[Rfam]
L4-Archaeoglobi ribosomal protein leades: a 100-nucleotide RNA sequence. Rfam's curators put it in the seed alignment.
RNA sequence: CUGAUGACCGCGUUCGGGUCAAUUGUGAAUUGCAACACCCGGUCUCUCUCCAUGUGCCAGAAUCGGUAUCUGUACGAGAGGGGACACGCGUUGCUAUCAG
Numbered sequence: 001c002u003g004a005u006g007a008c009c010g011c012g013u014u015c016g017g018g019u020c021a022a023u024u025g026u027g028a029a030u031u032g033c034a035a036c037a038c039c040c041g042g043u044c045u046c047u048c049u050c051c052a053u054g055u056g057c058c059a060g061a062a063u064c065g066g067u068a069u070c071u072g073u074a075c076g077a078g079a080g081g082g083g084a085c086a087c088g089c090g091u092u093g094c095u096a097u098c099a100g
Stems, first nucleotide, its partner, number of pairs: 001100005009090005015041004023035005043084005048078003